The record is a 72-nucleotide RNA sequence from Phytomonas sp. EM1, which matches "Trypanosomatid snoRNA TB11Cs3H1" in Rfam. Rfam 15.1 lists 30 matches to the family in 16 species. By type it is an H/ACA-box small nucleolar RNA. The source organism's lineage runs through Eukaryota, Discoba, Kinetoplastea, Metakinetoplastina and Phytomonas. A search with the family's covariance model found it, with a score of 67 bits.
[Rfam]
RNA sequence: CAGGUACCCACGAACAAUCCCACCCGGAGUAUACUCUUUUUAAUCUCUUGUGUGGACCUAAGGGCUCCGAGA
Numbered sequence: 001c002a003g004g005u006a007c008c009c010a011c012g013a014a015c016a017a018u019c020c021c022a023c024c025c026g027g028a029g030u031a032u033a034c035u036c037u038u039u040u041u042a043a044u045c046u047c048u049u050g051u052g053u054g055g056a057c058c059u060a061a062g063g064g065c066u067c068c069g070a071g072a
Base pairs, nucleotide, nucleotide: 003068004067007064008063009062020055021054022053023052024050028041029040031038